[Rfam]
RNA: Nitrogen stress-induced RNA 1
Organism: Cuspidothrix issatschenkoi
RNA sequence: UGGUAGAUGCACCUUGAUCUUCAAUUCCCCUAGUUGAUAACAAUCCACUAGGGGUUUUCUUG
Numbered sequence: 001u002g003g004u005a006g007a008u009g010c011a012c013c014u015u016g017a018u019c020u021u022c023a024a025u026u027c028c029c030c031u032a033g034u035u036g037a038u039a040a041c042a043a044u045c046c047a048c049u050a051g052g053g054g055u056u057u058u059c060u061u062g
Stems, first nucleotide, its partner, number of pairs: 002013003027054008036045002